[Rfam]
RNA sequence: CCCCGGCUCCCCUCUAUUCGGAUCGUCCGGCACGUUCCUGCCGGUGAAGGGACGUUCAU
Numbered sequence: 001c002c003c004c005g006g007c008u009c010c011c012c013u014c015u016a017u018u019c020g021g022a023u024c025g026u027c028c029g030g031c032a033c034g035u036u037c038c039u040g041c042c043g044g045u046g047a048a049g050g051g052a053c054g055u056u057c058a059u
Stems, first nucleotide, its partner, number of pairs: 010051004015046002027044006

A member of the RNA family "msiK RNA" from Nocardia stercoris, 59 nucleotides long. It scores 45 bits against the family's covariance model. The source organism's lineage runs through Bacteria, Actinomycetota, Actinomycetes, Mycobacteriales and Nocardia.